[Rfam]
RNA sequence: UGGCGCCCAGCGUGGAUCGAGAACGGGGGAUUUCGUGAGGGACCGUUCAAGGAGCCGGCACAGAAGUUAGAAUAGAGGAUCGGUCAACAUGGGAACCUGCUGGGAUUUCCAGGCCUCGGUGAGUGAACGGCGAUUAUGGGUCAGGAAAUAAGCCAGCAUAAAAUGUUUGUUGAAAGUUUAAGUAAGGCAUUAAAGGAACGAGGAGUAAAGGUUAAAAUUAAGGAUUUAUGUCAAUAUUAUGAAUAUAUUAAACAAGUUU
Numbered sequence: 001u002g003g004c005g006c007c008c009a010g011c012g013u014g015g016a017u018c019g020a021g022a023a024c025g026g027g028g029g030a031u032u033u034c035g036u037g038a039g040g041g042a043c044c045g046u047u048c049a050a051g052g053a054g055c056c057g058g059c060a061c062a063g064a065a066g067u068u069a070g071a072a073u074a075g076a077g078g079a080u081c082g083g084u085c086a087a088c089a090u091g092g093g094a095a096c097c098u099g100c101u102g103g104g105a106u107u108u109c110c111a112g113g114c115c116u117c118g119g120u121g122a123g124u125g126a127a128c129g130g131c132g133a134u135u136a137u138g139g140g141u142c143a144g145g146a147a148a149u150a151a152g153c154c155a156g157c158a159u160a161a162a163a164u165g166u167u168u169g170u171u172g173a174a175a176g177u178u179u180a181a182g183u184a185a186g187g188c189a190u191u192a193a194a195g196g197a198a199c200g201a202g203g204a205g206u207a208a209a210g211g212u213u214a215a216a217a218u219u220a221a222g223g224a225u226u227u228a229u230g231u232c233a234a235u236a237u238u239a240u241g242a243a244u245a246u247a248u249u250a251a252a253c254a255a256g257u258u259u
Stems, first nucleotide, its partner, number of pairs: 006029003012024002034045001035043002075117003080113002083110001088104001090102003124143003128140001131138002149192003152188003199241002202238002205235002209227005
The record is a 259-nucleotide RNA from Octodon degus, which matches "Mason-Pfizer monkey virus packaging signal" in Rfam. It is annotated as a cis-regulatory element. From the family's description: This family represents a group of sequences that are related to the Mason-Pfizer monkey virus (MPMV) packaging signal. The packaging signal is located in the 5' UTR and is required for specific RNA encapsidation. Pairs were carried over by alignment from the consensus structure, which was predicted with PFOLD. Gene Ontology term of the family: viral genome packaging.